[Rfam]
RNA sequence: AGAUCAUUUCAAAGAGAGCUUGUGGGACAAAAACCAGUAGCUCUUAACACUGUGAUCAAAGGUUAAAGUUCUUCAUAGGAUAUUAUAGUCACUCAAUAGUGUUAUACUUUCUUGAGAAGAUAUGAUU
Numbered sequence: 001a002g003a004u005c006a007u008u009u010c011a012a013a014g015a016g017a018g019c020u021u022g023u024g025g026g027a028c029a030a031a032a033a034c035c036a037g038u039a040g041c042u043c044u045u046a047a048c049a050c051u052g053u054g055a056u057c058a059a060a061g062g063u064u065a066a067a068g069u070u071c072u073u074c075a076u077a078g079g080a081u082a083u084u085a086u087a088g089u090c091a092c093u094c095a096a097u098a099g100u101g102u103u104a105u106a107c108u109u110u111c112u113u114g115a116g117a118a119g120a121u122a123u124g125a126u127u
Stems, first nucleotide, its partner, number of pairs: 002057006014045007023037001026035001070120005077113004085105004090101004
RNA: Small nucleolar RNA SNORA25
Organism: Rousettus aegyptiacus